[Rfam]
RNA sequence: GAUGCUAAACGGUUAUAUGUAAUAAGCGUCGUGGACCCGGGGGCAGUACCCGGCGGCUCCACCUAAGUAAUCGGAUCAAAUGUUGUGAAGGCUUUUCGCGGGCGUUUAAUUUUCGCGGGCUUUUCAGGCAAAAACGGGAUGAUUAUUUUGGCGGGGCCGAAACAGGAUCGACACGCGUGGUAAAGAUAUCGCCGGUAUCCGACAUUGUUCCGACGUAAUCGGGCUAAUAUUAUAGUUGCAAACGAUAACUUUGCUCCGGCCACCGCUCUCGCCGCUUAA
Numbered sequence: 001g002a003u004g005c006u007a008a009a010c011g012g013u014u015a016u017a018u019g020u021a022a023u024a025a026g027c028g029u030c031g032u033g034g035a036c037c038c039g040g041g042g043g044c045a046g047u048a049c050c051c052g053g054c055g056g057c058u059c060c061a062c063c064u065a066a067g068u069a070a071u072c073g074g075a076u077c078a079a080a081u082g083u084u085g086u087g088a089a090g091g092c093u094u095u096u097c098g099c100g101g102g103c104g105u106u107u108a109a110u111u112u113u114c115g116c117g118g119g120c121u122u123u124u125c126a127g128g129c130a131a132a133a134a135c136g137g138g139a140u141g142a143u144u145a146u147u148u149u150g151g152c153g154g155g156g157c158c159g160a161a162a163c164a165g166g167a168u169c170g171a172c173a174c175g176c177g178u179g180g181u182a183a184a185g186a187u188a189u190c191g192c193c194g195g196u197a198u199c200c201g202a203c204a205u206u207g208u209u210c211c212g213a214c215g216u217a218a219u220c221g222g223g224c225u226a227a228u229a230u231u232a233u234a235g236u237u238g239c240a241a242a243c244g245a246u247a248a249c250u251u252u253g254c255u256c257c258g259g260c261c262a263c264c265g266c267u268c269u270c271g272c273c274g275c276u277u278a279a
Stems, first nucleotide, its partner, number of pairs: 001199005015189004027177003031174003037053005054159007200215002203212001